[Rfam]
RNA sequence: GUCACCUGGCAUCUUGUUAAAAUGCAGAUUCUGAUUCAGAAGUUCUGGGAGGGGCCUGAGGCUCUGCAUUUUUAACAAGCUCCCAGGUGAUGCUGA
Numbered sequence: 001g002u003c004a005c006c007u008g009g010c011a012u013c014u015u016g017u018u019a020a021a022a023u024g025c026a027g028a029u030u031c032u033g034a035u036u037c038a039g040a041a042g043u044u045c046u047g048g049g050a051g052g053g054g055c056c057u058g059a060g061g062c063u064c065u066g067c068a069u070u071u072u073u074a075a076c077a078a079g080c081u082c083c084c085a086g087g088u089g090a091u092g093c094u095g096a
Base pairs, nucleotide, nucleotide: 003089004088005087008083009082013079014078015077016076017075018074019073020071021070022069024067025066026065027064028063030061031060032059

The record is a 96-nucleotide RNA from Trichechus manatus, which matches "mir-544 microRNA precursor family" in Rfam. It scores 78 bits against the family's covariance model. The family has 16 seed sequences and 10,750 matches in Rfam 15.1. Rfam links the family to the GO terms miRNA-mediated post-transcriptional gene silencing and RISC complex. The literature on the family includes a 2010 paper in Genes Dev by Chiang et al., "Mammalian microRNAs: experimental evaluation of novel and previously annotated genes". The organism belongs to Trichechus manatus, within Eukaryota. The family's consensus secondary structure was predicted with RNAalifold.